[Rfam]
RNA: tRNA
RNA sequence: GACGGUAUAGUUUAAGUUGAGAUGUGUGCUCUGCGAGCAUUCGGUAGAGGUUUCUUGCCGUUG
Numbered sequence: 001g002a003c004g005g006u007a008u009a010g011u012u013u014a015a016g017u018u019g020a021g022a023u024g025u026g027u028g029c030u031c032u033g034c035g036a037g038c039a040u041u042c043g044g045u046a047g048a049g050g051u052u053u054c055u056u057g058c059c060g061u062u063g
Stems, first nucleotide, its partner, number of pairs: 001062007010023004026040004046055003